Record summary:
Rfam assigns this 67-nucleotide RNA from Bacillaceae bacterium SAS-127 to the family "Bacillaceae-1 RNA". The family's RNA type in Rfam is small RNA. The organism belongs to Bacillaceae, within Bacteria.
RNA sequence: GAAAGAGGAGCAAAGGCUAAAACCGCAACGUCCUGUUGCAACGCCUUUGUAACCUGCAUCGUGCAGG
Dot-bracket structure: ..........(((((((.......(((((.....)))))...)))))))...(((((.....)))))